[Rfam]
RNA: Plant small nucleolar RNA R71
RNA sequence: AACCCAUGGUGUGGACAUUGCAACAAAAGGCCUUUAAAACGCUCCCAACACUCAUUGAAAGGUUCUCCAUCAUCUUGUUUGAAAUUGAAGAUUUGUCCCCUUAAUGUGGCU
Numbered sequence: 001a002a003c004c005c006a007u008g009g010u011g012u013g014g015a016c017a018u019u020g021c022a023a024c025a026a027a028a029g030g031c032c033u034u035u036a037a038a039a040c041g042c043u044c045c046c047a048a049c050a051c052u053c054a055u056u057g058a059a060a061g062g063u064u065c066u067c068c069a070u071c072a073u074c075u076u077g078u079u080u081g082a083a084a085u086u087g088a089a090g091a092u093u094u095g096u097c098c099c100c101u102u103a104a105u106g107u108g109g110c111u
Base pairs, nucleotide, nucleotide: 001111003109004108005106006105057074058073